The family of this 100-nucleotide RNA from Leptolinea tardivitalis is "Bacterial small signal recognition particle RNA". The family's RNA type in Rfam is non-coding RNA gene. The signal recognition particle (SRP) is a universally conserved ribonucleoprotein involved in the co-translational targeting of proteins to membranes.
[Rfam]
RNA sequence: GGGUGGGACCGGCGCGGCAGAAUCUUUCGAACCCCGCCAGGUCUGAGAGGAAGCAACGGUAAGGAGGACACUCUGGGUGCCGCCGGGAAACCUGCCCGAA
Dot-bracket structure: ...((((.(((((((..((((.((((((.....(((.....(((....))).....)))...))))))...)))).)...))))))....))))......